Shown here is a 90-nucleotide RNA sequence from Macaca mulatta, a member of the family "mir-1225 microRNA precursor family". Its family is annotated with RISC complex and miRNA-mediated post-transcriptional gene silencing in the Gene Ontology. Rfam 15.1 lists 113 matches to the family in 111 species. The base pairs follow the family's consensus structure, which was predicted with RNAalifold.
Nucleotides: 090
Base pairs, nucleotide, nucleotide: 002089003088004087005086008083009082010081011080013078014077017076018075019074020073022069023068026065027064028060029059033055035053036052037051038050039049040048041047042046
Number, partner (000 for none) and nucleotide at each position: 001000g002089u003088g004087g005086g006000u007000a008083c009082g010081g011080c012000c013078c014077a015000g016000u017076g018075g019074g020073g021000g022069g023068g024000a025000g026065a027064g028060g029059g030000a031000c032000a033055c034000g035053c036052c037051c038050u039049g040048g041047g042046c043000u044000c045000u046042g047041c048040c049039c050038a051037g052036g053035g054000u055033g056000c057000a058000g059029c060028c061000g062000g063000a064027c065026u066000g067000a068023c069022u070000g071000a072000g073020c074019c075018c076017c077014u078013g079000u080011g081010c082009c083008g084000c085000c086005c087004c088003c089002a090000g